[Rfam]
Small nucleolar RNA Z155: an 82-nucleotide RNA from Capsella rubella. The source organism's lineage runs through Eukaryota, Streptophyta, Tracheophyta, Brassicales and Capsella. By type it is a C/D-box small nucleolar RNA. The base pairs follow the family's consensus structure. A reference for the family is Chen et al. (2003), "The high diversity of snoRNAs in plants: identification and comparative study of 120 snoRNA genes from Oryza sativa", Nucleic Acids Res.
RNA sequence: CAAUGGAAUGAUGAUAAUGAUUAUUCGGAAAUAUUGAUUUAUUGUGUCGACCAAAACUCAGACUACAAUUAUCUGAUUAUUU
Numbered sequence: 001c002a003a004u005g006g007a008a009u010g011a012u013g014a015u016a017a018u019g020a021u022u023a024u025u026c027g028g029a030a031a032u033a034u035u036g037a038u039u040u041a042u043u044g045u046g047u048c049g050a051c052c053a054a055a056a057c058u059c060a061g062a063c064u065a066c067a068a069u070u071a072u073c074u075g076a077u078u079a080u081u082u
Stems, first nucleotide, its partner, number of pairs: 002081005